[Rfam]
RNA sequence: CUAUCAUCCAGAAAGGUGGAGGGAGUGGCCCUGAGAAGCCUUGGCAACCGUCAGUAGUGAUUGGUGCCAAUUCCAACCCGGACAAGCAGUGCGGGGAAGAUGAUUG
Numbered sequence: 001c002u003a004u005c006a007u008c009c010a011g012a013a014a015g016g017u018g019g020a021g022g023g024a025g026u027g028g029c030c031c032u033g034a035g036a037a038g039c040c041u042u043g044g045c046a047a048c049c050g051u052c053a054g055u056a057g058u059g060a061u062u063g064g065u066g067c068c069a070a071u072u073c074c075a076a077c078c079c080g081g082a083c084a085a086g087c088a089g090u091g092c093g094g095g096g097a098a099g100a101u102g103a104u105u106g
Base pairs, nucleotide, nucleotide: 001106003104004103005102006101007100008099013042014041015040016039017038021031022030023029026075027074028073043068044067045066046065048064049063050061051060052059053058072098077095078094079093080092082090
Rfam assigns this 106-nucleotide RNA from Chlorobium phaeobacteroides to the family "SAM riboswitch aptamer (S box leader)". It is one of the family's seed sequences.